The family of this 201-nucleotide RNA from Oryza meyeriana is "MIR1435 microRNA precursor family". A search with the family's covariance model found it, with a score of 103 bits. The family's consensus secondary structure was predicted with RNAalifold. The organism belongs to Oryza meyeriana, within Eukaryota. Rfam 15.1 lists 1,765 matches to the family in 31 species.
RNA sequence: UGACUUUUUUCUAAGUCAAACUUCUUUAAGUUCGACCAAGUUUAUAGAAAAAAUUAGCAACAUUUUCUACACAAAACAAAUAUAUUCUCAAGAUAUAUUCAAUGAUGGAUUAAAUGAAACUAAGUUGGUGCUGCAGAUGUUGCUACAUUUUUCUAUAAACUUGGUCAAUCUUAAAAGAAUUUUGAGCUAGAAAAAAGUCAA
Numbered sequence: 001u002g003a004c005u006u007u008u009u010u011c012u013a014a015g016u017c018a019a020a021c022u023u024c025u026u027u028a029a030g031u032u033c034g035a036c037c038a039a040g041u042u043u044a045u046a047g048a049a050a051a052a053a054u055u056a057g058c059a060a061c062a063u064u065u066u067c068u069a070c071a072c073a074a075a076a077c078a079a080a081u082a083u084a085u086u087c088u089c090a091a092g093a094u095a096u097a098u099u100c101a102a103u104g105a106u107g108g109a110u111u112a113a114a115u116g117a118a119a120c121u122a123a124g125u126u127g128g129u130g131c132u133g134c135a136g137a138u139g140u141u142g143c144u145a146c147a148u149u150u151u152u153c154u155a156u157a158a159a160c161u162u163g164g165u166c167a168a169u170c171u172u173a174a175a176a177g178a179a180u181u182u183u184g185a186g187c188u189a190g191a192a193a194a195a196a197g198u199c200a201a
Stems, first nucleotide, its partner, number of pairs: 005196005011190003016185005022179005032168001034166002045155008055145003059141007067133001072127003